[Rfam]
RNA sequence: ACCGUUGUUUCAAGUAAAUCUCGUGCGGUUUGUCUCAUUCCGAACCGUAUGAGAUUUACUUAAAAUGAUUGUG
Numbered sequence: 001a002c003c004g005u006u007g008u009u010u011c012a013a014g015u016a017a018a019u020c021u022c023g024u025g026c027g028g029u030u031u032g033u034c035u036c037a038u039u040c041c042g043a044a045c046c047g048u049a050u051g052a053g054a055u056u057u058a059c060u061u062a063a064a065a066u067g068a069u070u071g072u073g
Stems, first nucleotide, its partner, number of pairs: 003071001004069007012061021
Rfam assigns this 73-nucleotide sequence from Bombyx mori to the family "mir-2767 microRNA precursor family". It is one of the family's seed sequences.